Rfam assigns this 165-nucleotide RNA sequence from Lactococcus fujiensis to the family "MarS sRNA". The family's consensus secondary structure is taken from published work. Lineage of the source: Bacteria > Bacillati > Bacillota > Lactococcus > Lactococcus fujiensis. Rfam classes the family as a small RNA. A search with the family's covariance model found it, with a score of 86 bits. From the family's description: Interacts with the 5'UTR of the mga transcript (the multiple virulence gene regulator gene) and was renamed MarS for mag-activating regulatory sRNA. In MarS deletion strains expression of mga and several Mga-activated genes is reduced. This down-regulation of virulence factors leads to increased susceptibility of the deletion strain to phagocytosis, reduced adherence to human keratinocytes. However, the lack of MarS increased bacterial dissemination and tolerance towards oxidative stress.
[Rfam]
RNA sequence: AUGCGAUGAGUCGAUCAUUCUGCUUUCGAGUAGAAUUUCGAGCAGGGAACGCUGGACUGUUGGGUCAGUCGCACAGGAAGUGUGAGCGUUUGUCAAAAUGUGUGAACCUUUUUGACACAAAUUUAUUUGCCCAAAACCCUCUGUCAGUACUGACAGAGGGUUUUU
Numbered sequence: 001a002u003g004c005g006a007u008g009a010g011u012c013g014a015u016c017a018u019u020c021u022g023c024u025u026u027c028g029a030g031u032a033g034a035a036u037u038u039c040g041a042g043c044a045g046g047g048a049a050c051g052c053u054g055g056a057c058u059g060u061u062g063g064g065u066c067a068g069u070c071g072c073a074c075a076g077g078a079a080g081u082g083u084g085a086g087c088g089u090u091u092g093u094c095a096a097a098a099u100g101u102g103u104g105a106a107c108c109u110u111u112u113u114g115a116c117a118c119a120a121a122u123u124u125a126u127u128u129g130c131c132c133a134a135a136a137c138c139c140u141c142u143g144u145c146a147g148u149a150c151u152g153a154c155a156g157a158g159g160g161u162u163u164u165u
Stems, first nucleotide, its partner, number of pairs: 012040003018035006045132003048090004072082003091117008118129004137160009